[Rfam]
RNA sequence: UGUAAGCUUUAGGAGUAGCUAGUUUUUACUAGUUUGAGAAACAUCCUUUGAACCUGAUUUGGUUAAUACCAGCGUAGGGAAAAGUUAUUUCUUUAAU
Numbered sequence: 001u002g003u004a005a006g007c008u009u010u011a012g013g014a015g016u017a018g019c020u021a022g023u024u025u026u027u028a029c030u031a032g033u034u035u036g037a038g039a040a041a042c043a044u045c046c047u048u049u050g051a052a053c054c055u056g057a058u059u060u061g062g063u064u065a066a067u068a069c070c071a072g073c074g075u076a077g078g079g080a081a082a083a084g085u086u087a088u089u090u091c092u093u094u095a096a097u
Stems, first nucleotide, its partner, number of pairs: 006085005011047004016041001017034005053078004059072004